A member of the RNA family "Lysine riboswitch aptamer" from Aquibacillus salsiterrae, 185 nucleotides long. Rfam links the family to the GO term lysine biosynthetic process. A search with the family's covariance model found it, with a score of 132 bits.
[Rfam]
RNA sequence: AGUGAGGAUAGAGGUGCAAAGACCAUCAGUAAGUAACCGGAAGAUAAUGAGAUCUAAUAAUGGUUACUGAAAGGGGAAUUUGCCGAAGUGAUAAGAAUCUCAUUAUUCUGGUCACUGGUUCUGUAUUGAAUAAGUACAGGGCUGUCAUAUAGCUAUACGUUGCUAUAUGGAGGGCUAUCUCAUGC
Numbered sequence: 001a002g003u004g005a006g007g008a009u010a011g012a013g014g015u016g017c018a019a020a021g022a023c024c025a026u027c028a029g030u031a032a033g034u035a036a037c038c039g040g041a042a043g044a045u046a047a048u049g050a051g052a053u054c055u056a057a058u059a060a061u062g063g064u065u066a067c068u069g070a071a072a073g074g075g076g077a078a079u080u081u082g083c084c085g086a087a088g089u090g091a092u093a094a095g096a097a098u099c100u101c102a103u104u105a106u107u108c109u110g111g112u113c114a115c116u117g118g119u120u121c122u123g124u125a126u127u128g129a130a131u132a133a134g135u136a137c138a139g140g141g142c143u144g145u146c147a148u149a150u151a152g153c154u155a156u157a158c159g160u161u162g163c164u165a166u167a168u169g170g171a172g173g174g175c176u177a178u179c180u181c182a183u184g185c
Stems, first nucleotide, its partner, number of pairs: 006180006016083005023076002032068008087116006094109005117143011145170009
Lineage of the source: Bacteria > Bacillati > Bacillota > Bacillaceae > Aquibacillus.